The family of this 212-nucleotide sequence from Ameiurus melas is "Small nucleolar RNA U3". Clan: U3 clan. NCBI's taxonomy places the organism under Eukaryota, Eumetazoa, Otophysi, Siluroidei, Ameiurus. Rfam's curators write: Small nucleolar RNAs (snoRNAs) are involved in the processing and modification of rRNA in the nucleolus. There are two main classes of snoRNAs: the box C/D class, and the box H/ACA class. U3 snoRNA is a member of the box C/D class. It is annotated as a C/D-box small nucleolar RNA.
[Rfam]
RNA sequence: AAGACUAUACUGUCAGGGAUCAGUUCUAUAGUAUCUAACUUGGAAAUGUGAUUUGAAAGCGUUACGUCUCCUAAUCACGAUGAUGAGUUUUGAUGUACUCUUCUGAGCGUGAAUCGGAUUUUGGCUAAUGAUUCAUUCAUGGGCUUUAAUCAUUGAUGAACGUUCUUUUUCCUUCGAGGGCACCGAGAGGAAGAGUACAUGAUCCGAGUGAU
Dot-bracket structure: (((...(((((...((((.....))))..)))))....)))......(((...(......).)))........(((((..............((((((((((((..(((.......((((..((((.((((.....)))).))))..)))).........)))..((.(.(((....))).)..))..)))))))))))).......)))))